[Rfam]
RNA sequence: ACAGGUAGUGUCCCUCAGGGCUGUAGAACAGGGUUGGAUUACUAAAGCCCUGUUCUAUGCCCUGAGGGACACUGAGCAUGU
Number, nucleotide and partner (000 for none) at each position: 001a081002c080003a079004g000005g000006u074007a073008g072009u071010g070011u069012c068013c067014c066015u065016c064017a063018g062019g061020g060021c059022u000023g058024u057025a056026g055027a054028a053029c052030a051031g050032g049033g048034u047035u046036g000037g000038a000039u000040u000041a000042c000043u000044a000045a000046a035047g034048c033049c032050c031051u030052g029053u028054u027055c026056u025057a024058u023059g021060c020061c019062c018063u017064g016065a015066g014067g013068g012069a011070c010071a009072c008073u007074g006075a000076g000077c000078a000079u003080g002081u001

Rfam assigns this 81-nucleotide RNA from Pongo pygmaeus to the family "mir-1266 microRNA precursor family".
Taxonomically the source falls in Pongo (Eukaryota, Opisthokonta, Vertebrata, Eutheria).